[Rfam]
RNA sequence: CAGGUAGGAUAAACAGUCGCGGCUGUAGAGCCCGAAAGGGGGCAGACGAGGAAAGUCCGGGCUUCACAGGGCAGGAUGCCGGAUAACGUCCGGUGGAGGUAACUCCAAGGAAAGUGCAACAGAAAUAAACCGCCGCUUUUGCGGUAAGGGUGGAAAGGCAGUGUAAGAGACUACCGCUUCCCUGGUAACAGGAAAGGCAUAUGUAAACCCCAUCUGAAGAAAGACCGAAUGAAAACGAUACGGCGGCCCGUCGUGUUUUAGGUAGGUUGAUGGACUCCUUCGGCGACGAUGGAGCUAGAUAGAUGACUGUUCAAGACAUAACCCGGCUUAUCGUCCUGCCUGUCAU
Dot-bracket structure: ((((((((((((((((((.((.((((...............)))).))....[[[.[[[[[((((...[[[[.((((((((((.....)))))(((((....)))).)((...(((((...........(((((((....)))))..)).......((.(((.......))).))((((.((((....)))).))).)...)))..)))))))))))))...((((.....((((((...((((.]]]])))))))))).....))))......((((.(((....))).))))..........)))))))..........]]]]]]]].).))))))))))....

A member of the RNA family "Bacterial RNase P class A" from Sellimonas intestinalis, 346 nucleotides long. Rfam links the family to the GO terms tRNA processing, dimeric ribonuclease P complex and ribonuclease P activity. The base pairs follow the family's consensus structure, which is taken from published work. A search with the family's covariance model found it, with a score of 288 bits. It is annotated as a ribozyme.